[Rfam]
RNA sequence: CGUGUCGGCUGAAUCAGAGAUUGGCUGGCACAACGAUAAACUUAACUCUUUAGGAGAGAAUUAUGUCUCUGAAUGCAGAAACUAAAGCAGCAAUCGUUGCUGAAUACGCGCGCGCUGAA
Numbered sequence: 001c002g003u004g005u006c007g008g009c010u011g012a013a014u015c016a017g018a019g020a021u022u023g024g025c026u027g028g029c030a031c032a033a034c035g036a037u038a039a040a041c042u043u044a045a046c047u048c049u050u051u052a053g054g055a056g057a058g059a060a061u062u063a064u065g066u067c068u069c070u071g072a073a074u075g076c077a078g079a080a081a082c083u084a085a086a087g088c089a090g091c092a093a094u095c096g097u098u099g100c101u102g103a104a105u106a107c108g109c110g111c112g113c114g115c116u117g118a119a
Stems, first nucleotide, its partner, number of pairs: 007026006050073002053070004
RNA: Ribosomal S15 leader